[Rfam]
RNA sequence: CUCGCUUGAUGACAGGAAGGACUGAAAUGUCCGCGGACCCCUGGUCCUUCCUCGAUGUUCUUGCGGC
Numbered sequence: 001c002u003c004g005c006u007u008g009a010u011g012a013c014a015g016g017a018a019g020g021a022c023u024g025a026a027a028u029g030u031c032c033g034c035g036g037a038c039c040c041c042u043g044g045u046c047c048u049u050c051c052u053c054g055a056u057g058u059u060c061u062u063g064c065g066g067c
Stems, first nucleotide, its partner, number of pairs: 002066004014052010029038003
Annotation
A member of the RNA family "Selenocysteine insertion sequence 1" from Dipodomys ordii, 67 nucleotides long. Gene Ontology term of the family: selenocysteine incorporation. A reference for the family is Walczak et al. (1996), "A novel RNA structural motif in the selenocysteine insertion element of eukaryotic selenoprotein mRNAs", RNA. The incorporation of selenocysteine into a protein sequence is directed by an in-frame UGA codon (usually a stop codon) within the coding region of the mRNA. Selenoprotein mRNAs contain a conserved secondary structure in the 3' UTR that is required for the distinction of UGA stop from UGA selenocysteine. The selenocysteine insertion sequence (SECIS) is around 60 nt in length and adopts a hairpin structure which is sufficiently well-defined and conserved to act as a computational screen for selenoprotein genes. NCBI's taxonomy places the organism under Eukaryota, Boreoeutheria, Glires, Castorimorpha, Dipodomys.